[Rfam]
RNA sequence: AUCAGCGAUCUUGUGAUAGAAGCUUUUAAAAAUUGCGUUUAUGUCGUCAUUACGAAAUCUAGAAUUUCCGGCAUAAUCUUAAACAGCGAGACUUGUUUUUUAAAAAAACAAGUCUCUUUUU
Number, nucleotide and partner (000 for none) at each position: 001a000002u000003c000004a000005g036006c000007g034008a033009u000010c000011u031012u000013g000014u000015g000016a000017u000018a000019g000020a000021a000022g000023c000024u000025u000026u000027u000028a000029a000030a000031a011032a000033u008034u007035g000036c005037g078038u000039u076040u075041a074042u073043g072044u071045c070046g069047u000048c000049a067050u000051u000052a000053c062054g000055a060056a000057a000058u000059c000060u055061a000062g053063a000064a000065u000066u000067u049068c000069c046070g045071g044072c043073a042074u041075a040076a039077u000078c037079u000080u000081a000082a000083a000084c000085a000086g000087c000088g116089a115090g114091a113092c112093u111094u110095g109096u108097u107098u106099u105100u000101u000102a000103a000104a000105a099106a098107a097108a096109c095110a094111a093112g092113u091114c090115u089116c088117u000118u000119u000120u000121u000

Rfam assigns this 121-nucleotide sequence from Streptococcus varani to the family "Streptococcus sRNA 10".
A reference for the family is Tesorero et al. (2013), "Novel regulatory small RNAs in Streptococcus pyogenes", PLoS One.
It is annotated as a small RNA.